[Rfam]
RNA: Small nucleolar RNA SNORD2
RNA sequence: GUAUGAAGUGAUGGUAUACCAUCUUUCGGGACUGACACGUCAUGGAGAAGCUUUUUAACGUUACUGAUCAUAU
Numbered sequence: 001g002u003a004u005g006a007a008g009u010g011a012u013g014g015u016a017u018a019c020c021a022u023c024u025u026u027c028g029g030g031a032c033u034g035a036c037a038c039g040u041c042a043u044g045g046a047g048a049a050g051c052u053u054u055u056u057a058a059c060g061u062u063a064c065u066g067a068u069c070a071u072a073u
Stems, first nucleotide, its partner, number of pairs: 001073006